The family of this 51-nucleotide RNA from Dictyostelium purpureum is "Class I RNA from Dictyostelium". The family's RNA type in Rfam is non-coding RNA gene. Pairs were carried over by alignment from the consensus structure, which is taken from published work. The sequence is in the family's curated seed alignment. Dictyostelium Class I RNA was first reported for Aspegren et al. 2004 in Dictyostelium discoideum. Sucgang et al. 2011 identify putative homologs of Class I RNA in D. discoideum and D. purpureum. Avesson et al. 2011 report that Class I RNA present a down regulation during the development of social amoeba Dictyostelium discoideum, they also found that deletion of one of the Class I RNAs, DdR-21, results in aberrant development. Kjellin et al. 2020 report an extended number of expressed Class I RNA genes in class Dictyostelia, in their analysis they remark that Class I RNA appear to be unique to dictyostelid social amoebas, and they hypothesise that Class I RNAs were involved in evolution of multicellularity in Dictyostelia. The organism belongs to Dictyostelium, within Eukaryota.
RNA sequence: GAAUUCCUUACAGCAAUGAUUUAAACAAUUAGUUAUGAAAAUCGGGUUCUG
Dot-bracket structure: ((((((.....................................))))))..